[Rfam]
RNA sequence: UGAGGAAGCCUAUGAUGUCUUAGCCGUGGUGUCUGAACCUGGCUGAAGGACUCUUGUGAAGACUCACUCUUGGGCUCUGAGGCUUCCAGGGCG
Numbered sequence: 001u002g003a004g005g006a007a008g009c010c011u012a013u014g015a016u017g018u019c020u021u022a023g024c025c026g027u028g029g030u031g032u033c034u035g036a037a038c039c040u041g042g043c044u045g046a047a048g049g050a051c052u053c054u055u056g057u058g059a060a061g062a063c064u065c066a067c068u069c070u071u072g073g074g075c076u077c078u079g080a081g082g083c084u085u086c087c088a089g090g091g092c093g
Stems, first nucleotide, its partner, number of pairs: 004087007
The family of this 93-nucleotide RNA sequence from Smithornis capensis is "Small nucleolar RNA SNORD91 family". Rfam classes the family as a C/D-box small nucleolar RNA. Rfam 15.1 lists 977 matches to the family in 495 species. Pairs were carried over by alignment from the consensus structure. A search with the family's covariance model found it, with a score of 60 bits.